[Rfam]
mir-135 microRNA precursor family: an 85-nucleotide sequence from Nothobranchius furzeri. The literature on the family includes a 2004 paper in Proc Natl Acad Sci U S A by Kim et al., "Identification of many microRNAs that copurify with polyribosomes in mammalian neurons". Its family is annotated with RISC complex and gene silencing by miRNA in the Gene Ontology. The organism belongs to Nothobranchius, within Eukaryota.
RNA sequence: AAGCCACCGUGUAAUAUGGCUUUUUAUUCCUAUGUGAUGAUGACAAACGUUCACGUAGGAAUUGAAGCCAUUUUAAACGUGGUUU
Numbered sequence: 001a002a003g004c005c006a007c008c009g010u011g012u013a014a015u016a017u018g019g020c021u022u023u024u025u026a027u028u029c030c031u032a033u034g035u036g037a038u039g040a041u042g043a044c045a046a047a048c049g050u051u052c053a054c055g056u057a058g059g060a061a062u063u064g065a066a067g068c069c070a071u072u073u074u075a076a077a078c079g080u081g082g083u084u085u
Stems, first nucleotide, its partner, number of pairs: 002084006009078002012075003016071008026062012